This 73-nucleotide RNA from Spiroplasma syrphidicola belongs to the Rfam family "tRNA". Taxonomically the source falls in Spiroplasma syrphidicola (Bacteria, Entomoplasmatales, Spiroplasmataceae, Spiroplasma). Rfam classes the family as a transfer RNA.
RNA sequence: CGGGUGUUAGCUCAGUUGGGAGAGCGUCUGCCUUACAAGCAGGUGGUCAGCGGUUCAAGUCCGUUACACCCGA
Numbered sequence: 001c002g003g004g005u006g007u008u009a010g011c012u013c014a015g016u017u018g019g020g021a022g023a024g025c026g027u028c029u030g031c032c033u034u035a036c037a038a039g040c041a042g043g044u045g046g047u048c049a050g051c052g053g054u055u056c057a058a059g060u061c062c063g064u065u066a067c068a069c070c071c072g073a
Stems, first nucleotide, its partner, number of pairs: 001072007010025004027043005049065005